[Rfam]
RNA sequence: CUGAAAUGAUGAGAUUCCACUUCAUUGGUCCGUGUUUCAUGAUAACAGUGGAAGUUCUGAUUGG
Numbered sequence: 001c002u003g004a005a006a007u008g009a010u011g012a013g014a015u016u017c018c019a020c021u022u023c024a025u026u027g028g029u030c031c032g033u034g035u036u037u038c039a040u041g042a043u044a045a046c047a048g049u050g051g052a053a054g055u056u057c058u059g060a061u062u063g064g
Base pairs, nucleotide, nucleotide: 001064002063003062004061
Description: Small nucleolar RNA SNORD18: a 64-nucleotide sequence from Podargus strigoides. The family has 16 seed sequences and 2,622 matches in Rfam 15.1. The match comes from Rfam's covariance-model search (55 bits). The family's consensus secondary structure was predicted with PFOLD. Rfam classes the family as a C/D-box small nucleolar RNA. On this family, see Prislei et al., Nucleic Acids Res 1993: "Two different snoRNAs are encoded in introns of amphibian and human L1 ribosomal protein genes". Clan: SNORD18 clan. Lineage of the source: Eukaryota > Vertebrata > Tetrapoda > Aves > Podargus.